RNA sequence: UCUCCAGGGCACCGUGCUUUCGAUUGUUACUGUGGGAGCGGAGGUAACAGUCUAGCAGCCAUGGUCGCCCCGCAGCA
Numbered sequence: 001u002c003u004c005c006a007g008g009g010c011a012c013c014g015u016g017c018u019u020u021c022g023a024u025u026g027u028u029a030c031u032g033u034g035g036g037a038g039c040g041g042a043g044g045u046a047a048c049a050g051u052c053u054a055g056c057a058g059c060c061a062u063g064g065u066c067g068c069c070c071c072g073c074a075g076c077a
Base pairs, nucleotide, nucleotide: 012064013063015061016060017058022052023051024050025049026048027047028046029045030044031043
The record is a 77-nucleotide sequence from Rhinopithecus bieti, which matches "mir-132 microRNA precursor family" in Rfam. A reference for the family is Chen et al. (2005), "The developmental miRNA profiles of zebrafish as determined by small RNA cloning", Genes Dev. A search with the family's covariance model found it, with a score of 54 bits. Rfam 15.1 lists 1,023 matches to the family in 386 species. The organism belongs to Rhinopithecus, within Eukaryota. The base pairs follow the family's consensus structure, which was predicted with RNAalifold.